[Rfam]
RNA sequence: UUAGGAAGAGGCCUUCUCCUCCCAGUUCUUCCCGGAGUUGGGAAAAGCUGGGUUGAGAGGGUGAAAAAAAAAAAAA
Numbered sequence: 001u002u003a004g005g006a007a008g009a010g011g012c013c014u015u016c017u018c019c020u021c022c023c024a025g026u027u028c029u030u031c032c033c034g035g036a037g038u039u040g041g042g043a044a045a046a047g048c049u050g051g052g053u054u055g056a057g058a059g060g061g062u063g064a065a066a067a068a069a070a071a072a073a074a075a076a
Base pairs, nucleotide, nucleotide: 014059015058016057017056018055021052022051023050024049025048029044030043031042032041033040034039

Shown here is a 76-nucleotide RNA from Prolemur simus, a member of the family "mir-320 microRNA precursor family". It scores 89 bits against the family's covariance model. Gene Ontology terms of the family: positive regulation of stem cell proliferation, miRNA-mediated post-transcriptional gene silencing and negative regulation of gene expression.